RNA sequence: AACCUGGUUGCUCCUGCCAGUAGUCAUACGCUUGUCUCAAAGAUUAAGCCAUGCAUGUCUAAGUACAAGCCCUUGUACGGUGAAACUGCGAAUGGCUCAAUAAAUCGGUUUUAAGACACUUGAUAGUCUCUCUACUUGGAUAACCGUAGCAAUUCUAGAGCUAAUACAUGCUAUCCUUCGGGUGAGCUUAUUAGAUCCAACCACAACCGUGGUGAGUCAUAGUAAUCAAUCUGAUUGGCGCAAGCCGACGGUUCAAUCUCGAUUCCGCCCUAUCAGCUUUCGACGGUAGGGUAUUGGCCUACCGUGGCGUUAACGGGUAACGGAGAAUUAGGGUUCGAUUCCGGAGAGGGAGCCUGAGAAACGGCUACCACAUCCAAGGAAGGCAGCAGGCGCGUAAAUUACCCAAUCCUAAAGCAGGGAGGUAGUGACAAUAAAUACUGACGCCGGAUUCAAUGAAUCUGGUAAAGAAUGAGAACAGUCUAAAACCCUUAUCGAGGACCCAUUGGAGGGCAAGUCUGGUGCCAGCAGCCGCGGUAAUUCCAGCUCCAAUAGCGUAUAUUAAAGUUGUUG
Numbered sequence: 001a002a003c004c005u006g007g008u009u010g011c012u013c014c015u016g017c018c019a020g021u022a023g024u025c026a027u028a029c030g031c032u033u034g035u036c037u038c039a040a041a042g043a044u045u046a047a048g049c050c051a052u053g054c055a056u057g058u059c060u061a062a063g064u065a066c067a068a069g070c071c072c073u074u075g076u077a078c079g080g081u082g083a084a085a086c087u088g089c090g091a092a093u094g095g096c097u098c099a100a101u102a103a104a105u106c107g108g109u110u111u112u113a114a115g116a117c118a119c120u121u122g123a124u125a126g127u128c129u130c131u132c133u134a135c136u137u138g139g140a141u142a143a144c145c146g147u148a149g150c151a152a153u154u155c156u157a158g159a160g161c162u163a164a165u166a167c168a169u170g171c172u173a174u175c176c177u178u179c180g181g182g183u184g185a186g187c188u189u190a191u192u193a194g195a196u197c198c199a200a201c202c203a204c205a206a207c208c209g210u211g212g213u214g215a216g217u218c219a220u221a222g223u224a225a226u227c228a229a230u231c232u233g234a235u236u237g238g239c240g241c242a243a244g245c246c247g248a249c250g251g252u253u254c255a256a257u258c259u260c261g262a263u264u265c266c267g268c269c270c271u272a273u274c275a276g277c278u279u280u281c282g283a284c285g286g287u288a289g290g291g292u293a294u295u296g297g298c299c300u301a302c303c304g305u306g307g308c309g310u311u312a313a314c315g316g317g318u319a320a321c322g323g324a325g326a327a328u329u330a331g332g333g334u335u336c337g338a339u340u341c342c343g344g345a346g347a348g349g350g351a352g353c354c355u356g357a358g359a360a361a362c363g364g365c366u367a368c369c370a371c372a373u374c375c376a377a378g379g380a381a382g383g384c385a386g387c388a389g390g391c392g393c394g395u396a397a398a399u400u401a402c403c404c405a406a407u408c409c410u411a412a413a414g415c416a417g418g419g420a421g422g423u424a425g426u427g428a429c430a431a432u433a434a435a436u437a438c439u440g441a442c443g444c445c446g447g448a449u450u451c452a453a454u455g456a457a458u459c460u461g462g463u464a465a466a467g468a469a470u471g472a473g474a475a476c477a478g479u480c481u482a483a484a485a486c487c488c489u490u491a492u493c494g495a496g497g498a499c500c501c502a503u504u505g506g507a508g509g510g511c512a513a514g515u516c517u518g519g520u521g522c523c524a525g526c527a528g529c530c531g532c533g534g535u536a537a538u539u540c541c542a543g544c545u546c547c548a549a550u551a552g553c554g555u556a557u558a559u560u561a562a563a564g565u566u567g568u569u570g
Stems, first nucleotide, its partner, number of pairs: 004020005022560003026557007035433001037431001041426001042393001048391003052388003057089002062087003069081002096346003106267003111262002115260002121255003135170001137168002144160001147157003175182002188225006202211003235248004269317003276308003283305008321343004325336004348369002351366003371382001373380002399424001401423003407419004439466001443463009473493002475490001477489002503549006516543004525532002
Dot-bracket structure: ...(((((.......))))).(((.(((((((..(.(...((.....(((.(((..((...(((....((.........))...)))))......(((.......(((..((..((....(((...........(.((.....(..(((.....)))..)......)).)....((....)).....((((((........(((....)))........)))))).........((((......))))....)))...))))..))).(((....(((....((((((((.......)))))))))))......)))...((((((((....))))...))))))).((.(((..........))).)).(.((....)).)...)))))).).....(.(((...((((.....)))).)))).)....).).....(...(((((((((...)))))))))..)......(((.((.........))).)).........((((((.......((((.....((....)).......)))))))))).))))))))))..........

Notes: Eukaryotic small subunit ribosomal RNA: a 570-nucleotide part of an RNA from uncultured picobiliphyte. It is one of the family's seed sequences. Gene Ontology terms of the family: ribosome and structural constituent of ribosome. The family's consensus secondary structure is taken from published work. Rfam 15.1 lists 75,755 matches to the family in 2,556 species.